[Rfam]
RNA: Nitrogen stress-induced RNA 1
RNA sequence: UGGUAGAUGCACCCUGAUUGUUUCCCCUGGCGCGAGCUGGGGGAUUUUUUU
Numbered sequence: 001u002g003g004u005a006g007a008u009g010c011a012c013c014c015u016g017a018u019u020g021u022u023u024c025c026c027c028u029g030g031c032g033c034g035a036g037c038u039g040g041g042g043g044a045u046u047u048u049u050u051u
Stems, first nucleotide, its partner, number of pairs: 002013003024043008